A member of the RNA family "mir-252 microRNA precursor family" from Orchesella cincta, 78 nucleotides long. Rfam links the family to the GO terms miRNA-mediated post-transcriptional gene silencing and RISC complex. The literature on the family includes a 2009 paper in BMC Genomics by Li et al., "Direct sequencing and expression analysis of a large number of miRNAs in Aedes aegypti and a multi-species survey of novel mosquito miRNAs".

RNA sequence: UUCCAUUGAUAAGCACUGGAGCAGCAGGAGCUGUUAUAAAAUGUCAAUCUCCUGCGGCACUAGUACUUAGGAACGAAA
Numbered sequence: 001u002u003c004c005a006u007u008g009a010u011a012a013g014c015a016c017u018g019g020a021g022c023a024g025c026a027g028g029a030g031c032u033g034u035u036a037u038a039a040a041a042u043g044u045c046a047a048u049c050u051c052c053u054g055c056g057g058c059a060c061u062a063g064u065a066c067u068u069a070g071g072a073a074c075g076a077a078a
Base pairs, nucleotide, nucleotide: 001078002077004075006073007072010069011068012067013066015064016063017062018061019060024055025054026053027052028051029050030049